[Rfam]
RNA sequence: GAGUGGCGGUGGGCGGCUGUCCGAAAGGAGGAAAGUCCCCCCACCGCUAAAAGGCGGACCCCCGCAAGGGGGUGUGCCGAGAGGCACGGCAACGGCACAGAAACGAUACCCGCUUGGGGAAAUGCAAGGAGGCCGAAAGGCUGAGGUCACCCAAGCGGGAUGAAACGGCCGUCCCCGCCGGUGCAAGGGCUUAGCCCGCUUAGACCAAUGCCGCCGAGAAACAGAAGGGGGCUUACUACCGCCACUC
Numbered sequence: 001g002a003g004u005g006g007c008g009g010u011g012g013g014c015g016g017c018u019g020u021c022c023g024a025a026a027g028g029a030g031g032a033a034a035g036u037c038c039c040c041c042c043a044c045c046g047c048u049a050a051a052a053g054g055c056g057g058a059c060c061c062c063c064g065c066a067a068g069g070g071g072g073u074g075u076g077c078c079g080a081g082a083g084g085c086a087c088g089g090c091a092a093c094g095g096c097a098c099a100g101a102a103a104c105g106a107u108a109c110c111c112g113c114u115u116g117g118g119g120a121a122a123u124g125c126a127a128g129g130a131g132g133c134c135g136a137a138a139g140g141c142u143g144a145g146g147u148c149a150c151c152c153a154a155g156c157g158g159g160a161u162g163a164a165a166c167g168g169c170c171g172u173c174c175c176c177g178c179c180g181g182u183g184c185a186a187g188g189g190c191u192u193a194g195c196c197c198g199c200u201u202a203g204a205c206c207a208a209u210g211c212c213g214c215c216g217a218g219a220a221a222c223a224g225a226a227g228g229g230g231g232c233u234u235a236c237u238a239c240c241g242c243c244a245c246u247c
Stems, first nucleotide, its partner, number of pairs: 001247003005243005011236001012215006021028002033234003037231005042183004053179005058073005074087005088174002093171004109159010132141002187197004
Archaeal RNase P: a 247-nucleotide RNA sequence from Archaeoglobus profundus. A search with the family's covariance model found it, with a score of 195 bits. The literature on the family includes a 1999 paper in Nucleic Acids Res by Brown, "The Ribonuclease P Database". Rfam links the family to the GO terms ribonuclease P activity, tRNA processing and multimeric ribonuclease P complex. Ribonuclease P (RNase P) is a ubiquitous endoribonuclease, found in archaea, bacteria and eukarya as well as chloroplasts and mitochondria. Its best characterised activity is the generation of mature 5'-ends of tRNAs by cleaving the 5'-leader elements of precursor-tRNAs. Cellular RNase Ps are ribonucleoproteins. RNA from bacterial RNase Ps retains its catalytic activity in the absence of the protein subunit, i.e. it is a ribozyme. Isolated eukaryotic and archaeal RNase P RNA has not been shown to retain its catalytic function, but is still essential for the catalytic activity of the holoenzyme. Although the archaeal and eukaryotic holoenzymes have a much greater protein content than the bacterial ones, the RNA cores from all the three lineages are homologous -- helices corresponding to P1, P2, P3, P4, and P10/11 are common to all cellular RNase P RNAs. Yet, there is considerable sequence variation, particularly among the eukaryotic RNAs. Rfam classes the family as a ribozyme.